[Rfam]
RNA sequence: UGUACAUCCCAUUCUCCGUAAAAUCCUAAAAUAACCCGCAGUGAUUAACAGGUUAAAUAGCCUUUUCAGAUUAAACUCAGAUAAGAAAUUUGCGCUACGUAAUGGACAACAAGAAUUAUCCGAUAAAAAAAUGCCGGCAUUUCGCCGGCAUUAAUUAUUCAA
Numbered sequence: 001u002g003u004a005c006a007u008c009c010c011a012u013u014c015u016c017c018g019u020a021a022a023a024u025c026c027u028a029a030a031a032u033a034a035c036c037c038g039c040a041g042u043g044a045u046u047a048a049c050a051g052g053u054u055a056a057a058u059a060g061c062c063u064u065u066u067c068a069g070a071u072u073a074a075a076c077u078c079a080g081a082u083a084a085g086a087a088a089u090u091u092g093c094g095c096u097a098c099g100u101a102a103u104g105g106a107c108a109a110c111a112a113g114a115a116u117u118a119u120c121c122g123a124u125a126a127a128a129a130a131a132u133g134c135c136g137g138c139a140u141u142u143c144g145c146c147g148g149c150a151u152u153a154a155u156u157a158u159u160c161a162a
Stems, first nucleotide, its partner, number of pairs: 015106005024070002028066004042055005113120001131151008

This 162-nucleotide sequence from Trabulsiella odontotermitis belongs to the Rfam family "Enterobacterial sRNA STnc430".
Taxonomically the source falls in Trabulsiella (Bacteria, Pseudomonadati, Enterobacterales, Enterobacteriaceae).